[Rfam]
RNA: c-di-GMP-I riboswitch aptamer
Organism: Paenibacillus phyllosphaerae
RNA sequence: AGAUGAGAAAGGCAAAGCAUGCGAAAGCAUGUGACGCAAAGCUACAGGGGCUAAAGAUUCGCCAGAACGGAAUCGAUGCCAGCCAGCCGCCGCU
Numbered sequence: 001a002g003a004u005g006a007g008a009a010a011g012g013c014a015a016a017g018c019a020u021g022c023g024a025a026a027g028c029a030u031g032u033g034a035c036g037c038a039a040a041g042c043u044a045c046a047g048g049g050g051c052u053a054a055a056g057a058u059u060c061g062c063c064a065g066a067a068c069g070g071a072a073u074c075g076a077u078g079c080c081a082g083c084c085a086g087c088c089g090c091c092g093c094u
Base pairs, nucleotide, nucleotide: 012037013036017032018031019030020029021028022027041087042086043085047084048083049080050079051078056074057073058072059071